[Rfam]
RNA sequence: GAAGUAGAUAGAGGUUGCGGUUUUUAAGAGUAUGUUUGUGGAGUUAAGCGCAUUGAAGCAAACAGAAAGGACUAAUCGCCGAAGCGUAUAGUUAAUGCUUUAAGACUAUAACGUUGGGGUUAUAUAGAACAUGUAUAACACUGUCACAAAUUUAUUUGUGGGGAGCUAUCACGAAA
Number, nucleotide and partner (000 for none) at each position: 001g000002a000003a000004g000005u000006a000007g170008a169009u168010a167011g166012a000013g000014g000015u000016u000017g079018c078019g077020g076021u075022u074023u000024u000025u071026a000027a000028g000029a000030g000031u000032a000033u064034g063035u062036u061037u060038g059039u058040g000041g000042a000043g000044u000045u000046a000047a000048g000049c000050g000051c000052a000053u000054u000055g000056a000057a000058g039059c038060a037061a036062a035063c034064a033065g000066a000067a000068a000069g000070g000071a025072c000073u000074a022075a021076u020077c019078g018079c017080c000081g000082a000083a115084g114085c113086g112087u110088a109089u108090a107091g106092u105093u104094a000095a000096u000097g000098c000099u000100u000101u000102a000103a000104g093105a092106c091107u090108a089109u088110a087111a000112c086113g085114u084115u083116g142117g141118g000119g139120u138121u137122a136123u135124a134125u133126a132127g000128a000129a000130c000131a000132u126133g125134u124135a123136u122137a121138a120139c119140a000141c117142u116143g000144u161145c160146a159147c158148a157149a156150a155151u000152u000153u000154a000155u150156u149157u148158g147159u146160g145161g144162g000163g000164a000165g000166c011167u010168a009169u008170c007171a000172c000173g000174a000175a000176a000
Source information
A member of the RNA family "Lysine riboswitch aptamer" from Holtiella tumoricola, 176 nucleotides long. The source organism's lineage runs through Bacteria, Bacillati, Clostridia, Lachnospirales and Holtiella. Rfam's curators write: Riboswitches are metabolite binding domains within certain messenger RNAs that serve as precision sensors for their corresponding targets.